This 84-nucleotide RNA sequence from Drosophila rhopaloa belongs to the Rfam family "Small nucleolar RNA R38".
RNA sequence: AUAUGCAAUGAUGAACAUCUUAUUUAAGCCAAACAGUUAUCCCUGUCAUAAGAAUAAUUGAUGAUAAAAUAAGCUGAUACAUAU
Numbered sequence: 001a002u003a004u005g006c007a008a009u010g011a012u013g014a015a016c017a018u019c020u021u022a023u024u025u026a027a028g029c030c031a032a033a034c035a036g037u038u039a040u041c042c043c044u045g046u047c048a049u050a051a052g053a054a055u056a057a058u059u060g061a062u063g064a065u066a067a068a069a070u071a072a073g074c075u076g077a078u079a080c081a082u083a084u
Stems, first nucleotide, its partner, number of pairs: 001084005007078001
Rfam classes the family as a C/D-box small nucleolar RNA. The family has 19 seed sequences and 2,295 matches in Rfam 15.1. The family's consensus secondary structure was predicted with PFOLD. For this family Rfam cites "Antisense snoRNAs: a family of nucleolar RNAs with long complementarities to rRNA" (Bachellerie et al., Trends Biochem Sci, 1995). About the family: snoR38 is a C/D box small nucleolar RNA conserved across yeast, human, Arabidopsis and rice. It is encoded in the intron of elongation factor-1 gamma in both pombe and cerevisiae. snoR38 guides the methylation of 2'-O-ribose sites in 28S rRNA.